Annotation: This 61-nucleotide sequence from Geminocystis sp. M7585_C2015_104 belongs to the Rfam family "Plastid-psbN 5UTR RNA". Pairs were carried over by alignment from the consensus structure, which was predicted with LocARNA. Plastid psbN is a non-coding RNA (ncRNA) recognised in plastids. It was reported as a conserved 11 stem-loop in the prime untranslated region (5UTR) of psbN genes. It has been reported that the motif is retained in a subset of mature transcripts in barley, which can suggests a possible role in transcript alternative 5 prime processing. The literature on the family includes a 2023 paper in Plant Commun by Richter et al., "Retrograde signaling in plants: A critical review focusing on the GUN pathway and beyond".
RNA sequence: AAAUACUCCCAUCAAGGGGGUUGUGCCCCACCCCGGCACAACCUUUCCAUAUUCAGAAUUA
Number, nucleotide and partner (000 for none) at each position: 001a000002a000003a000004u000005a000006c000007u000008c000009c000010c000011a000012u000013c000014a000015a000016g000017g045018g044019g043020g042021u041022u040023g039024u038025g037026c036027c035028c000029c000030a000031c000032c000033c000034c000035g027036g026037c025038a024039c023040a022041a021042c020043c019044u018045u017046u000047c000048c000049a000050u000051a000052u000053u000054c000055a000056g000057a000058a000059u000060u000061a000